[Rfam]
RNA sequence: GUCCUGAUCGGAAACCAGGACGGGGCCAAGGAG
Numbered sequence: 001g002u003c004c005u006g007a008u009c010g011g012a013a014a015c016c017a018g019g020a021c022g023g024g025g026c027c028a029a030g031g032a033g
Stems, first nucleotide, its partner, number of pairs: 001021006008014001
About this RNA: Shown here is a 33-nucleotide RNA from Triticum aestivum, a member of the family "L31-Coriobacteria ribosomal protein leader". Rfam classes the family as a cis-regulatory leader. Its Rfam clan is "Ribosomal Protein L31 Leader clan". Lineage of the source: Eukaryota > Viridiplantae > Tracheophyta > commelinids > Triticum.